[Rfam]
This 80-nucleotide RNA belongs to the Rfam family "RAGATH-10 RNA".
It is one of the family's seed sequences.
The base pairs follow the family's consensus structure, which is taken from published work.
The family's RNA type in Rfam is small RNA.

RNA sequence: AAAACCUCAUCUUUGAUCUACGUCAUCCGGGCGUCGAUCAGUGUUUCUAACACGGGCGUCCGCCCAGAUGAGGAGAGAGU
Number, nucleotide and partner (000 for none) at each position: 001a000002a000003a000004a000005c073006c072007u071008c070009a069010u068011c067012u066013u000014u000015g000016a038017u037018c036019u000020a034021c033022g032023u031024c030025a000026u000027c000028c000029g000030g024031g023032c022033g021034u020035c000036g018037a017038u016039c000040a000041g053042u052043g051044u049045u000046u000047c000048u000049a044050a000051c043052a042053c041054g065055g064056g063057c062058g000059u000060c000061c000062g057063c056064c055065c054066a012067g011068a010069u009070g008071a007072g006073g005074a000075g000076a000077g000078a000079g000080u000